[Rfam]
RNA sequence: AAGCCGGUAUUCAUUAUUGAAACCGGACAUUAUAUUAUAUUGUUAUUAUUUUAGUUAUUCGACUUAUAUCCUUGAGAGGAAUAAGAACGGAGG
Numbered sequence: 001a002a003g004c005c006g007g008u009a010u011u012c013a014u015u016a017u018u019g020a021a022a023c024c025g026g027a028c029a030u031u032a033u034a035u036u037a038u039a040u041u042g043u044u045a046u047u048a049u050u051u052u053a054g055u056u057a058u059u060c061g062a063c064u065u066a067u068a069u070c071c072u073u074g075a076g077a078g079g080a081a082u083a084a085g086a087a088c089g090g091a092g093g
Stems, first nucleotide, its partner, number of pairs: 001030001003028001004026005010021002060089002063085005069080003
Rfam assigns this 93-nucleotide RNA sequence from Clostridium thermosuccinogenes to the family "pan motif".
It is annotated as a cis-regulatory element.